A member of the RNA family "Ribosomal protein L13 leader" from Heyndrickxia ginsengihumi, 60 nucleotides long.
NCBI's taxonomy places the organism under Bacteria, Bacillota, Bacilli, Caryophanales, Heyndrickxia.
Rfam links the family to the GO term regulation of gene expression.
Rfam classes the family as a cis-regulatory leader.
About the family: This family is a putative r-protein leader autoregulatory structure found in B. subtilis and other low-GC Gram-positive bacteria. It is located in the 5' untranslated regions of mRNAs encoding the L13-S9 (rplM-rpsI) ribosomal protein operon.
Nucleotides: 060
Base pairs, nucleotide, nucleotide: 006056008054009053010052011051016043017042018041019039020038021037022036023035024034
Number, partner (000 for none) and nucleotide at each position: 001000u002000g003000u004000u005000u006056u007000u008054u009053u010052u011051a012000a013000a014000c015000c016043c017042a018041c019039g020038a021037u022036a023035a024034g025000c026000c027000c028000c029000g030000g031000a032000a033000a034024c035023u036022u037021a038020u039019u040000c041018g042017u043016g044000a045000u046000u047000a048000g049000a050000a051011u052010a053009a054008a055000u056006a057000g058000a059000a060000a